[Rfam]
RNA: Plastid-psbA-2 3UTR RNA
RNA sequence: AAAAAGGAGCAAUACCUUUCCUCUUGUUUUAUCAAGAGGGCGUUAUUACUCCUUUUUUUAU
Numbered sequence: 001a002a003a004a005a006g007g008a009g010c011a012a013u014a015c016c017u018u019u020c021c022u023c024u025u026g027u028u029u030u031a032u033c034a035a036g037a038g039g040g041c042g043u044u045a046u047u048a049c050u051c052c053u054u055u056u057u058u059u060a061u
Stems, first nucleotide, its partner, number of pairs: 001057009011047004016042001017040003022037005
Dot-bracket structure: (((((((((.((((.((((..(((((......)))))))).).)))).)))))))))....